The family of this 179-nucleotide sequence from Tepidibacter thalassicus is "Lysine riboswitch aptamer". Gene Ontology term of the family: lysine biosynthetic process. The match comes from Rfam's covariance-model search (133 bits).
RNA sequence: AAACGAGAUAGAGGUUGCAUUAUUUAAGAGUACUGCUUUUGAGGUAAGCACGAUGAGAGAGUAGGAAAGGAAAUAAUGCCGAAGCAUGUAGCUGAUGCUUUAAGGCUACAUAGCUGGGUCUGCAUAGAAUAUAUGCAGAACUGUCACAAAUGUUUUAUUUGUGGAGAGCUAUCAUUCAA
Numbered sequence: 001a002a003a004c005g006a007g008a009u010a011g012a013g014g015u016u017g018c019a020u021u022a023u024u025u026a027a028g029a030g031u032a033c034u035g036c037u038u039u040u041g042a043g044g045u046a047a048g049c050a051c052g053a054u055g056a057g058a059g060a061g062u063a064g065g066a067a068a069g070g071a072a073a074u075a076a077u078g079c080c081g082a083a084g085c086a087u088g089u090a091g092c093u094g095a096u097g098c099u100u101u102a103a104g105g106c107u108a109c110a111u112a113g114c115u116g117g118g119u120c121u122g123c124a125u126a127g128a129a130u131a132u133a134u135g136c137a138g139a140a141c142u143g144u145c146a147c148a149a150a151u152g153u154u155u156u157a158u159u160u161g162u163g164g165a166g167a168g169c170u171a172u173c174a175u176u177c178a179a
Stems, first nucleotide, its partner, number of pairs: 007173005017079009033064008083115003086111008116142002119139008144164007